Shown here is a 173-nucleotide sequence from Macrococcus lamae, a member of the family "Lysine riboswitch aptamer".
Rfam links the family to the GO term lysine biosynthetic process.
For this family Rfam cites "Riboswitches Control Fundamental Biochemical Pathways in Bacillus subtilis and Other Bacteria" (Mandal et al., Cell, 2003).
[Rfam]
RNA sequence: AAAAGAGGUAGAGGUUGCAAUGAAGAAGAGUAGCACUGCUGAUACGGUAUCACGUAAAUGAAGCAGUGUGAAAGGCGCCAUUGCCGAAGUUUCUCCUGAUGAUAACAAGGAGCGGCUGGGCUGAUAUAGAAGAUAUAUCAGACUGUCACAAUCCGUGAUGCGCUACUUAACAC
Numbered sequence: 001a002a003a004a005g006a007g008g009u010a011g012a013g014g015u016u017g018c019a020a021u022g023a024a025g026a027a028g029a030g031u032a033g034c035a036c037u038g039c040u041g042a043u044a045c046g047g048u049a050u051c052a053c054g055u056a057a058a059u060g061a062a063g064c065a066g067u068g069u070g071a072a073a074g075g076c077g078c079c080a081u082u083g084c085c086g087a088a089g090u091u092u093c094u095c096c097u098g099a100u101g102a103u104a105a106c107a108a109g110g111a112g113c114g115g116c117u118g119g120g121c122u123g124a125u126a127u128a129g130a131a132g133a134u135a136u137a138u139c140a141g142a143c144u145g146u147c148a149c150a151a152u153c154c155g156u157g158a159u160g161c162g163c164u165a166c167u168u169a170a171c172a173c
Stems, first nucleotide, its partner, number of pairs: 006168006017084006025076001033069008088117004093112005118144002121141008146158004